[Rfam]
RNA sequence: CGGUUCUUGCAUCUCCGGACCACGAGUGACCGUAUUGAUGCGUUGCGCUCACAUAUGGGGUAGUCCCAUGAUCGCCCCGUCAUCGGAGGU
Number, nucleotide and partner (000 for none) at each position: 001c000002g000003g000004u000005u000006c000007u000008u000009g000010c000011a000012u000013c000014u000015c000016c000017g000018g000019a000020c000021c000022a000023c000024g000025a000026g052027u051028g050029a000030c000031c047032g046033u045034a044035u000036u042037g000038a000039u000040g000041c000042g036043u000044u034045g033046c032047g031048c000049u000050c028051a027052c026053a000054u000055a000056u000057g078058g077059g076060g075061u074062a072063g000064u071065c070066c000067c000068a000069u000070g065071a064072u062073c000074g061075c060076c059077c058078c057079g000080u000081c000082a000083u000084c000085g000086g000087a000088g000089g000090u000

The family of this 90-nucleotide RNA sequence from Streptomyces sp. ADI95-17 is "NLPC-P60 RNA". The organism belongs to Streptomyces, within Bacteria. The match comes from Rfam's covariance-model search (62 bits). Rfam classes the family as a cis-regulatory element.